[Rfam]
Nucleotides: 092
Base pairs, nucleotide, nucleotide: 013038014037015036016035017034018033019032025052026051027050028049029048058078059077060076061075062074063073064072
Number, partner (000 for none) and nucleotide at each position: 001000u002000a003000a004000c005000g006000u007000u008000g009000g010000a011000c012000a013038c014037a015036c016035c017034c018033g019032u020000u021000a022000a023000c024000c025052g026051a027050g028049a029048c030000c031000u032019a033018u034017g035016g036015g037014u038013g039000u040000a041000u042000a043000a044000g045000a046000a047000c048029g049028u050027c051026u052025c053000u054000c055000a056000u057000a058078u059077c060076c061075c062074g063073c064072u065000u066000g067000a068000g069000g070000g071000u072064g073063g074062c075061g076060g077059g078058a079000a080000c081000a082000u083000a084000g085000u086000a087000a088000c089000a090000c091000c092000a